Rfam assigns this 56-nucleotide RNA sequence from Polysphondylium violaceum to the family "Class I RNA from Dictyostelium". It is annotated as a non-coding RNA gene. The source organism's lineage runs through Eukaryota, Evosea, Dictyostelia, Dictyosteliaceae and Polysphondylium. Rfam describes the family as follows. Dictyostelium Class I RNA was first reported for Aspegren et al. 2004 in Dictyostelium discoideum. Sucgang et al. 2011 identify putative homologs of Class I RNA in D. discoideum and D. purpureum. Avesson et al. 2011 report that Class I RNA present a down regulation during the development of social amoeba Dictyostelium discoideum, they also found that deletion of one of the Class I RNAs, DdR-21, results in aberrant development. For this family Rfam cites "Abundantly expressed class of noncoding RNAs conserved through the multicellular evolution of dictyostelid social amoebas" (Kjellin et al., Genome Res, 2021). It scores 50 bits against the family's covariance model.

RNA sequence: GUUCCCCUUACUGCAAUUAAAAUUCUCUACUGAUUUAAGAAAACCCUUGGGAACUG
Numbered sequence: 001g002u003u004c005c006c007c008u009u010a011c012u013g014c015a016a017u018u019a020a021a022a023u024u025c026u027c028u029a030c031u032g033a034u035u036u037a038a039g040a041a042a043a044c045c046c047u048u049g050g051g052a053a054c055u056g
Stems, first nucleotide, its partner, number of pairs: 001054006